[Rfam]
Nucleotides: 080
Base pairs, nucleotide, nucleotide: 001080002079003078004077
Number, partner (000 for none) and nucleotide at each position: 001080g002079a003078g004077a005000u006000a007000u008000g009000a010000u011000g012000a013000u014000u015000c016000u017000u018000u019000u020000a021000u022000u023000g024000g025000u026000c027000c028000g029000u030000g031000u032000u033000u034000c035000u036000g037000a038000u039000u040000u041000a042000a043000c044000c045000g046000u047000g048000a049000c050000c051000g052000a053000c054000a055000u056000u057000a058000u059000u060000u061000u062000u063000u064000u065000a066000c067000c068000a069000a070000u071000c072000u073000c074000u075000g076000a077004u078003c079002u080001c